[Rfam]
Nucleotides: 182
Base pairs, nucleotide, nucleotide: 014059015058016057017056018055019054060094061093062092063090065088066087068085069084070083073080074079113176114175115174116173117172118171119170120169121168122167123166124165125164127146128145129144130143131142132141
Number, partner (000 for none) and nucleotide at each position: 001000a002000c003000a004000c005000g006000g007000g008000a009000a010000a011000g012000g013000a014059g015058g016057u017056g018055g019054u020000c021000c022000g023000a024000a025000g026000a027000a028000u029000g030000a031000u032000u033000u034000c035000u036000c037000a038000u039000c040000g041000g042000a043000u044000g045000c046000g047000u048000g049000a050000g051000g052000u053000g054019g055018c056017u057016g058015c059014u060094c061093g062092c063090u064000a065088g066087c067000a068085g069084c070083c071000c072000g073080c074079a075000g076000u077000u078000c079074u080073g081000a082000c083070g084069g085068c086000u087066g088065c089000g090063a091000c092062g093061c094060g095000a096000a097000u098000c099000c100000a101000a102000c103000a104000g105000c106000a107000g108000c109000c110000a111000c112000c113176c114175g115174a116173c117172c118171c119170g120169c121168a122167g123166g124165u125164g126000a127146g128145u129144c130143c131142g132141g133000a134000u135000c136000a137000u138000c139000c140000a141132c142131c143130g144129g145128a146127c147000g148000g149000g150000g151000c152000u153000c154000g155000u156000c157000c158000g159000a160000g161000c162000c163000a164125c165124a166123c167122c168121u169120g170119c171118g172117g173116g174115u175114c176113g177000c178000u179000g180000c181000a182000u
Actinobacteria sRNA Ms_IGR-5: a 182-nucleotide RNA from Nocardioides albidus.
By type it is a small RNA.
The match comes from Rfam's covariance-model search (102 bits).
A reference for the family is Li et al. (2013), "Identification of small RNAs in Mycobacterium smegmatis using heterologous Hfq", RNA.
Lineage of the source: Bacteria > Actinomycetes > Propionibacteriales > Nocardioidaceae > Nocardioides.